[Rfam]
Nucleotides: 108
Base pairs, nucleotide, nucleotide: 020094021093022092023091026088028086029085030084031083032082033081034080035079037077038076039075040074041073048072049071050070051069053067054066
Number, partner (000 for none) and nucleotide at each position: 001000a002000u003000g004000a005000a006000u007000g008000c009000a010000c011000u012000g013000a014000c015000c016000u017000u018000c019000a020094c021093a022092c023091u024000g025000u026088g027000u028086g029085u030084a031083u032082u033081u034080g035079a036000c037077a038076a039075g040074c041073u042000g043000a044000g045000c046000u047000c048072g049071a050070c051069a052000c053067u054066c055000g056000g057000c058000a059000u060000g061000g062000c063000a064000a065000a066054g067053g068000g069051u070050g071049u072048c073041a074040g075039u076038u077037u078000a079035u080034c081033a082032a083031a084030u085029a086028c087000c088026c089000c090000a091023a092022g093021u094020g095000u096000g097000a098000g099000g100000u101000u102000a103000c104000u105000c106000c107000a108000c
Description: The family of this 108-nucleotide RNA sequence from Albula goreensis is "mir-223 microRNA precursor family". Rfam links the family to the GO terms RISC complex and miRNA-mediated post-transcriptional gene silencing. The family's consensus secondary structure was predicted with RNAalifold. NCBI's taxonomy places the organism under Eukaryota, Craniata, Vertebrata, Elopomorpha, Albula.